[Rfam]
RNA: U1 spliceosomal RNA
Organism: Saimiri boliviensis
RNA sequence: AUACUUACCUGGCAGGGGAGAUACCAUGAUCAUGAAGGUGGUUUUCCCAGGGCGAGGCUUAUCCAUUGCACUCCUUUGUGCUAAUCCCUGUGAUUUCCCCAAAUGUGGGAAACUUGACUGCAUAAUUUGUGGUAGUAGGGGACUGCGUUCUCGCUUUCUCUUG
Numbered sequence: 001a002u003a004c005u006u007a008c009c010u011g012g013c014a015g016g017g018g019a020g021a022u023a024c025c026a027u028g029a030u031c032a033u034g035a036a037g038g039u040g041g042u043u044u045u046c047c048c049a050g051g052g053c054g055a056g057g058c059u060u061a062u063c064c065a066u067u068g069c070a071c072u073c074c075u076u077u078g079u080g081c082u083a084a085u086c087c088c089u090g091u092g093a094u095u096u097c098c099c100c101a102a103a104u105g106u107g108g109g110a111a112a113c114u115u116g117a118c119u120g121c122a123u124a125a126u127u128u129g130u131g132g133u134a135g136u137a138g139g140g141g142a143c144u145g146c147g148u149u150c151u152c153g154c155u156u157u158c159u160c161u162u163g
Base pairs, nucleotide, nucleotide: 012121013120014119015118016048017047018046019045020044021043023042024041025040026039027038049089050088051087052086054085056082057081058080060078061077091116092115093114094112095111096110098108099107137162138161139160140159141158142157145154146153147152